[Rfam]
RNA sequence: GAAAGCAAGUGAUGUUAAAAUUGUUUUUAUGCUUAACCACUGAAAUAUUAUGUGGAACAAAACUCCGCUUAUUAUCUGAUGCUUUC
Numbered sequence: 001g002a003a004a005g006c007a008a009g010u011g012a013u014g015u016u017a018a019a020a021u022u023g024u025u026u027u028u029a030u031g032c033u034u035a036a037c038c039a040c041u042g043a044a045a046u047a048u049u050a051u052g053u054g055g056a057a058c059a060a061a062a063c064u065c066c067g068c069u070u071a072u073u074a075u076c077u078g079a080u081g082c083u084u085u086c
Base pairs, nucleotide, nucleotide: 003084004083005082006081007080
RNA: Small nucleolar RNA R16
Organism: Daucus carota